[Rfam]
This 114-nucleotide RNA sequence from Desulfosarcina alkanivorans belongs to the Rfam family "c-di-GMP-I riboswitch aptamer".
RNA sequence: CCAUUGAAAAGCCAAACUCCGGGUAACCGGAGGACGGAAAGUCACGAGUCCGGAAAGAAAAUAUGCUGACGAUGGAAACGAUCGGCAUCCAUUUCGGAUUGUCGGACCGCCUGU
Numbered sequence: 001c002c003a004u005u006g007a008a009a010a011g012c013c014a015a016a017c018u019c020c021g022g023g024u025a026a027c028c029g030g031a032g033g034a035c036g037g038a039a040a041g042u043c044a045c046g047a048g049u050c051c052g053g054a055a056a057g058a059a060a061a062u063a064u065g066c067u068g069a070c071g072a073u074g075g076a077a078a079c080g081a082u083c084g085g086c087a088u089c090c091a092u093u094u095c096g097g098a099u100u101g102u103c104g105g106a107c108c109g110c111c112u113g114u
Stems, first nucleotide, its partner, number of pairs: 012037002017032006041107003045104003048099007